[Rfam]
RNA sequence: AGUUGGGGUAGAGGCGCGAUAUAUCAUGAGUAGAUUUGUGGAGAUACGGGAAGUCUAUGAAGCAAAUUAAAAGGGAUUAUCGCCGAAGUAUGGUUUUCCCCCAAGAAAUCAUACUGGGCUUAUAUCGAAUAGGUAUAAGACUGUCACUGAAAGUUUAUUCAGUGAAGCGCUACUUCAUUU
Numbered sequence: 001a002g003u004u005g006g007g008g009u010a011g012a013g014g015c016g017c018g019a020u021a022u023a024u025c026a027u028g029a030g031u032a033g034a035u036u037u038g039u040g041g042a043g044a045u046a047c048g049g050g051a052a053g054u055c056u057a058u059g060a061a062g063c064a065a066a067u068u069a070a071a072a073g074g075g076a077u078u079a080u081c082g083c084c085g086a087a088g089u090a091u092g093g094u095u096u097u098c099c100c101c102c103a104a105g106a107a108a109u110c111a112u113a114c115u116g117g118g119c120u121u122a123u124a125u126c127g128a129a130u131a132g133g134u135a136u137a138a139g140a141c142u143g144u145c146a147c148u149g150a151a152a153g154u155u156u157a158u159u160c161a162g163u164g165a166a167g168c169g170c171u172a173c174u175u176c177a178u179u180u
Stems, first nucleotide, its partner, number of pairs: 006175006016083006023077003033068007087115011116142002119139008144165007

A member of the RNA family "Lysine riboswitch aptamer" from Tepidanaerobacter acetatoxydans, 180 nucleotides long. The base pairs follow the family's consensus structure, which is taken from published work.